RNA sequence: UAUAAAAAUAGAGGUGCAUUUAUGGAGGUAGUAUGGAGAUGCUAAGAGAAAAAGCUCUCAAUGCUUCAUGCGAAGGACGUAGUUGCCGAAAGAGGAAAGAUUGCUUAUGGUCUUUUUUCUUGGGGGUUGCAGAAAUAUGCAACAACUGUCACAUUUAUUGUGGAGAGCUAUUUUGGGU
Numbered sequence: 001u002a003u004a005a006a007a008a009u010a011g012a013g014g015u016g017c018a019u020u021u022a023u024g025g026a027g028g029u030a031g032u033a034u035g036g037a038g039a040u041g042c043u044a045a046g047a048g049a050a051a052a053a054g055c056u057c058u059c060a061a062u063g064c065u066u067c068a069u070g071c072g073a074a075g076g077a078c079g080u081a082g083u084u085g086c087c088g089a090a091a092g093a094g095g096a097a098a099g100a101u102u103g104c105u106u107a108u109g110g111u112c113u114u115u116u117u118u119c120u121u122g123g124g125g126g127u128u129g130c131a132g133a134a135a136u137a138u139g140c141a142a143c144a145a146c147u148g149u150c151a152c153a154u155u156u157a158u159u160g161u162g163g164a165g166a167g168c169u170a171u172u173u174u175g176g177g178u
Stems, first nucleotide, its partner, number of pairs: 006173006016086003020082005031071008090121012122147002126143006149163005
This 178-nucleotide sequence from Fusobacterium varium belongs to the Rfam family "Lysine riboswitch aptamer".
The match comes from Rfam's covariance-model search (81 bits).
The base pairs follow the family's consensus structure, which is taken from published work.